[Rfam]
RNA sequence: GGUCAAUGAUGAUUAGUAAAAGGUCUGAGGGCACAGGGCAAUUACACUCCACUACCCUCCUGGCUCCCAGCAGUCCCUCUUCCGUCAUGCCAUAGUAGAGCUAUGACCAAGAAAGAAAGAGAUUGCUGACAGUUUGGGAUUAAUUUGGUUCCAGUUCCCCAUAGUGAAGGGAGUUGUGGAGCUGAAUGUGAUCCAACAGGAUUGAUUAAGAGGAGCUGGUGGUUGUGGGGUGUCUUCAUUGUUGUGUGUGAUCUAAAGUUUUCAAGCUGAGACC
Numbered sequence: 001g002g003u004c005a006a007u008g009a010u011g012a013u014u015a016g017u018a019a020a021a022g023g024u025c026u027g028a029g030g031g032c033a034c035a036g037g038g039c040a041a042u043u044a045c046a047c048u049c050c051a052c053u054a055c056c057c058u059c060c061u062g063g064c065u066c067c068c069a070g071c072a073g074u075c076c077c078u079c080u081u082c083c084g085u086c087a088u089g090c091c092a093u094a095g096u097a098g099a100g101c102u103a104u105g106a107c108c109a110a111g112a113a114a115g116a117a118a119g120a121g122a123u124u125g126c127u128g129a130c131a132g133u134u135u136g137g138g139a140u141u142a143a144u145u146u147g148g149u150u151c152c153a154g155u156u157c158c159c160c161a162u163a164g165u166g167a168a169g170g171g172a173g174u175u176g177u178g179g180a181g182c183u184g185a186a187u188g189u190g191a192u193c194c195a196a197c198a199g200g201a202u203u204g205a206u207u208a209a210g211a212g213g214a215g216c217u218g219g220u221g222g223u224u225g226u227g228g229g230g231u232g233u234c235u236u237c238a239u240u241g242u243u244g245u246g247u248g249u250g251a252u253c254u255a256a257a258g259u260u261u262u263c264a265a266g267c268u269g270a271g272a273c274c
Stems, first nucleotide, its partner, number of pairs: 001274004035254003039250001045232008064215004068128007081112002084107006090100001136194001138193005151179003157173001159171002

About this RNA: A member of the RNA family "Small Cajal body specific RNA 6" from Heliornis fulica, 274 nucleotides long. On this family, see Huttenhofer et al., EMBO J 2001: "RNomics: an experimental approach that identifies 201 candidates for novel, small, non-messenger RNAs in mouse". NCBI's taxonomy places the organism under Eukaryota, Metazoa, Sauropsida, Aves, Heliornis. Gene Ontology terms of the family: nucleolus and RNA processing. About the family: U88 is small Cajal body specific RNA (scaRNA). scaRNAs are a novel class of small nuclear RNAs which localise to the Cajal bodies. U88 is found associated with both fibrillarin and Gar1p and co-localises with coilin in Cajal bodies. The family's RNA type in Rfam is small Cajal body RNA.